[Rfam]
RNA sequence: AGCUGAUGCAUAUGGCGGCCCCUCCUCCCAGUGCCGCCGCAGCAGCUGUUCCCCUCUGGAGGUUUAUUGACCUUCACACUUCAUGGGCCGCGGUCUCCGCUGGCCCAUCUUU
Number, nucleotide and partner (000 for none) at each position: 001a047002g046003c045004u044005g043006a000007u041008g040009c039010a000011u000012a000013u000014g000015g037016c036017g035018g034019c000020c000021c000022c000023u000024c000025c000026u000027c000028c000029c000030a000031g000032u000033g000034c018035c017036g016037c015038c000039g009040c008041a007042g000043c005044a004045g003046c002047u001048g000049u000050u000051c000052c000053c000054c000055u000056c000057u076058g075059g074060a073061g072062g071063u070064u000065u000066a000067u000068u000069g000070a063071c062072c061073u060074u059075c058076a057077c000078a000079c000080u000081u000082c000083a000084u107085g106086g105087g104088c103089c102090g100091c099092g098093g097094u000095c000096u000097c093098c092099g091100c090101u000102g089103g088104c087105c086106c085107a084108u000109c000110u000111u000112u000
RNA: Alphaproteobacterial ar15